[Rfam]
RNA: Ribosomal protein L20 leader
Nucleotides: 158
Stems, first nucleotide, its partner, number of pairs: 011026006028051003033046005124145009
Number, partner (000 for none) and nucleotide at each position: 001000a002000c003000g004000c005000a006000c007000a008000a009000g010000c011026a012025g013024a014023a015022g016021c017000a018000c019000c020000c021016g022015c023014u024013u025012c026011u027000c028051a029050c030049c031000u032000u033046u034045c035044g036043g037042c038000u039000a040000a041000g042037g043036c044035u045034g046033g047000c048000u049030g050029g051028u052000u053000c054000g055000c056000g057000a058000u059000a060000a061000u062000c063000g064000a065000u066000u067000g068000g069000u070000c071000a072000c073000u074000a075000u076000a077000u078000u079000a080000u081000u082000u083000c084000a085000u086000a087000c088000g089000a090000a091000a092000u093000g094000a095000u096000g097000u098000a099000a100000u101000g102000g103000c104000a105000u106000a107000a108000a109000c110000g111000u112000a113000c114000g115000g116000u117000u118000a119000u120000g121000a122000g123000a124145u125144g126143c127142g128141g129140g130139u131138u132137c133000g134000a135000g136000c137132g138131a139130a140129c141128c142127c143126g144125c145124a146000u147000u148000u149000u150000u151000u152000u153000a154000u155000u156000g157000u158000g